[Rfam]
RNA sequence: GGGCGGGUGGCGGAAUUGGUAGACGCAUCAGACUCAAAAUCUGACACCGAAAGGUAUGAGAGUUCGAUUCUCUCUUCGCCCA
Numbered sequence: 001g002g003g004c005g006g007g008u009g010g011c012g013g014a015a016u017u018g019g020u021a022g023a024c025g026c027a028u029c030a031g032a033c034u035c036a037a038a039a040u041c042u043g044a045c046a047c048c049g050a051a052a053g054g055u056a057u058g059a060g061a062g063u064u065c066g067a068u069u070c071u072c073u074c075u076u077c078g079c080c081c082a
Base pairs, nucleotide, nucleotide: 001081002080003079004078005077006076007075010026011025012024028044029043030042031041032040058074059073060072061071062070
A member of the RNA family "tRNA" from Tychonema bourrellyi, 82 nucleotides long. The base pairs follow the family's consensus structure, which is taken from published work. It is annotated as a transfer RNA.